Shown here is a 143-nucleotide sequence from Gossypium barbadense, a member of the family "MIR7502 microRNA precursor family".
[Rfam]
RNA sequence: UAUUAAAAUUUCCAUUCAUUUGUAUUGUUAAAAACUGGCAUAGUUGAUGGAAUAACUAGACGGUGCAUGUGACGUGCCAAUGUACUUCAUGCUUAUGUAUGGGAAUCAAUUUUUAAUAGCAUAAAUGGAUGAAUUUUUUAAUA
Numbered sequence: 001u002a003u004u005a006a007a008a009u010u011u012c013c014a015u016u017c018a019u020u021u022g023u024a025u026u027g028u029u030a031a032a033a034a035c036u037g038g039c040a041u042a043g044u045u046g047a048u049g050g051a052a053u054a055a056c057u058a059g060a061c062g063g064u065g066c067a068u069g070u071g072a073c074g075u076g077c078c079a080a081u082g083u084a085c086u087u088c089a090u091g092c093u094u095a096u097g098u099a100u101g102g103g104a105a106u107c108a109a110u111u112u113u114u115a116a117u118a119g120c121a122u123a124a125a126u127g128g129a130u131g132a133a134u135u136u137u138u139u140a141a142u143a
Stems, first nucleotide, its partner, number of pairs: 002142007011133001013131004018126006025119002028116006